[Rfam]
RNA sequence: GUUCAUCCAUGGGCAGGGAUUUGCUGCACUGCUGUGCUAAUAUAAAGUAUUGCACUUGUCCCGGCCUGUGGAAGAAAG
Numbered sequence: 001g002u003u004c005a006u007c008c009a010u011g012g013g014c015a016g017g018g019a020u021u022u023g024c025u026g027c028a029c030u031g032c033u034g035u036g037c038u039a040a041u042a043u044a045a046a047g048u049a050u051u052g053c054a055c056u057u058g059u060c061c062c063g064g065c066c067u068g069u070g071g072a073a074g075a076a077a078g
Base pairs, nucleotide, nucleotide: 004074006072009069010068011067012066013065014064016062017061018060019059020058023055026053027052028051030049031048032047033046
RNA: mir-92 microRNA precursor family